Rfam assigns this 87-nucleotide RNA sequence from Paenibacillus sp. IHBB 10380 to the family "BsrC".

RNA sequence: ACUACCAAUACAACAAAAGCCCUACCUCUCUUUUGUCCUUGCGGCUCCAAUGACCGCGCCAGUGUGAAUCAGAUAUGUCCUUAAAAC
Numbered sequence: 001a002c003u004a005c006c007a008a009u010a011c012a013a014c015a016a017a018a019g020c021c022c023u024a025c026c027u028c029u030c031u032u033u034u035g036u037c038c039u040u041g042c043g044g045c046u047c048c049a050a051u052g053a054c055c056g057c058g059c060c061a062g063u064g065u066g067a068a069u070c071a072g073a074u075a076u077g078u079c080c081u082u083a084a085a086a087c
Stems, first nucleotide, its partner, number of pairs: 033067003038062002040058005046052001
It is annotated as a small RNA. The 301 nucleotide sequence from Kouji Nakamura has been trimmed to a highly conserved ~85 nucleotide long core to form this family. Lineage of the source: Bacteria > Bacillati > Bacillota > Bacilli > Paenibacillus. On this family, see Saito et al., Gene 2008: "Novel small RNA-encoding genes in the intergenic regions of Bacillus subtilis".